RNA sequence: GCCGCGCCUAGCUCGACGGGGCGAAAACCGGGUGCCCUACCCGGUCGGCGCGGCUCUCAAACAGGG
Numbered sequence: 001g002c003c004g005c006g007c008c009u010a011g012c013u014c015g016a017c018g019g020g021g022c023g024a025a026a027a028c029c030g031g032g033u034g035c036c037c038u039a040c041c042c043g044g045u046c047g048g049c050g051c052g053g054c055u056c057u058c059a060a061a062c063a064g065g066g
Stems, first nucleotide, its partner, number of pairs: 001054008011022004028044005035066004